[Rfam]
RNA: c-di-GMP-I riboswitch aptamer
Organism: Flavonifractor sp. An100
RNA sequence: AUUUGAAAAGGGCAAACCGUCUGAAAGGGCGGGACGCAAAGCCAUGGGGGCUAAGGCGGAAGACGCUAUGCCAGCCCGACCGCCAGU
Numbered sequence: 001a002u003u004u005g006a007a008a009a010g011g012g013c014a015a016a017c018c019g020u021c022u023g024a025a026a027g028g029g030c031g032g033g034a035c036g037c038a039a040a041g042c043c044a045u046g047g048g049g050g051c052u053a054a055g056g057c058g059g060a061a062g063a064c065g066c067u068a069u070g071c072c073a074g075c076c077c078g079a080c081c082g083c084c085a086g087u
Stems, first nucleotide, its partner, number of pairs: 012037002017032006041080001043078001046077003049072003056066003